[Rfam]
Nucleotides: 089
Base pairs, nucleotide, nucleotide: 006084007083008082009081010080011079012078013077019033020032021031022030035068036067037066038064039063042062043061044060048056049055
Number, partner (000 for none) and nucleotide at each position: 001000c002000c003000g004000a005000c006084u007083g008082c009081g010080a011079u012078g013077g014000g015000a016000g017000a018000a019033c020032c021031g022030g023000c024000c025000u026000u027000g028000c029000g030022c031021c032020g033019g034000u035068g036067c037066c038064g039063a040000a041000g042062g043061a044060g045000c046000a047000a048056c049055c050000g051000c052000c053000c054000c055049g056048g057000a058000a059000a060044c061043u062042c063039u064038c065000a066037g067036g068035c069000c070000a071000g072000a073000c074000g075000g076000a077013c078012c079011g080010u081009c082008g083007c084006g085000g086000c087000g088000a089000c